[Rfam]
RNA sequence: ACAUUGCGAUCUGGUGGUGGGCACGCUGAAAGCGGCCUCGACCAGUCACGCGUGAUUGACAGACAAGCCGCCCGGAAACCACGAGGCGGCUUUUUU
Numbered sequence: 001a002c003a004u005u006g007c008g009a010u011c012u013g014g015u016g017g018u019g020g021g022c023a024c025g026c027u028g029a030a031a032g033c034g035g036c037c038u039c040g041a042c043c044a045g046u047c048a049c050g051c052g053u054g055a056u057u058g059a060c061a062g063a064c065a066a067g068c069c070g071c072c073c074g075g076a077a078a079c080c081a082c083g084a085g086g087c088g089g090c091u092u093u094u095u096u
Stems, first nucleotide, its partner, number of pairs: 011045005017039001019038004024034003051058002065092008073083002